[Rfam]
RNA sequence: GGAUAGCACCGAUUGAAGUGAAAAUCCUUUUUUGGGGAAUGGCUAUUUUUUGCUGGAGAAAAAAAGCGACCAGCGGAAGCUCUUUUUUUGACUUGCAAAAAAAGCCAUUCCCUAAAAAGAUUGUAACUUAAAGCGGGAUGGGCU
Numbered sequence: 001g002g003a004u005a006g007c008a009c010c011g012a013u014u015g016a017a018g019u020g021a022a023a024a025u026c027c028u029u030u031u032u033u034g035g036g037g038a039a040u041g042g043c044u045a046u047u048u049u050u051u052g053c054u055g056g057a058g059a060a061a062a063a064a065a066g067c068g069a070c071c072a073g074c075g076g077a078a079g080c081u082c083u084u085u086u087u088u089u090g091a092c093u094u095g096c097a098a099a100a101a102a103a104g105c106c107a108u109u110c111c112c113u114a115a116a117a118a119g120a121u122u123g124u125a126a127c128u129u130a131a132a133g134c135g136g137g138a139u140g141g142g143c144u
Stems, first nucleotide, its partner, number of pairs: 009136003013132002018127002023122004029117004034112005

The family of this 144-nucleotide RNA sequence from Flavobacterium macacae is "Flavo-1 RNA". By type it is a small RNA. The source organism's lineage runs through Bacteria, Pseudomonadati, Bacteroidota, Flavobacteriaceae and Flavobacterium.